[Rfam]
RNA sequence: GGUGAUUCUCAGGUGACGCACCCCAGAAUAGAACCCCCUUGUCUCUGGUUCCGGGGUGCAUCACCCGAGAACCGCU
Numbered sequence: 001g002g003u004g005a006u007u008c009u010c011a012g013g014u015g016a017c018g019c020a021c022c023c024c025a026g027a028a029u030a031g032a033a034c035c036c037c038c039u040u041g042u043c044u045c046u047g048g049u050u051c052c053g054g055g056g057u058g059c060a061u062c063a064c065c066c067g068a069g070a071a072c073c074g075c076u
Stems, first nucleotide, its partner, number of pairs: 002075002006071005012065005019058005026051004031046001033044001
The record is a 76-nucleotide sequence from Myotis lucifugus, which matches "mir-9223 microRNA precursor family" in Rfam. NCBI's taxonomy places the organism under Eukaryota, Euteleostomi, Mammalia, Chiroptera, Myotis. Rfam 15.1 lists 14,641 matches to the family in 28 species.